Description:
A member of the RNA family "pan motif" from Anaerofustis stercorihominis, 98 nucleotides long. The family's consensus secondary structure is taken from published work. By type it is a cis-regulatory element.
RNA sequence: CGGAUGGUAUUCAUUUUGAAACUAUACCGUGGUAAAUAUUUUGUUUUUCAUUCUAAUUAUUAGAAUUAAAGCUUUUAUCGAAGGAAAGAGACUUUAUG
Numbered sequence: 001c002g003g004a005u006g007g008u009a010u011u012c013a014u015u016u017u018g019a020a021a022c023u024a025u026a027c028c029g030u031g032g033u034a035a036a037u038a039u040u041u042u043g044u045u046u047u048u049c050a051u052u053c054u055a056a057u058u059a060u061u062a063g064a065a066u067u068a069a070a071g072c073u074u075u076u077a078u079c080g081a082a083g084g085a086a087a088g089a090g091a092c093u094u095u096a097u098g
Stems, first nucleotide, its partner, number of pairs: 001029003004025005010020002069094003072090005078085002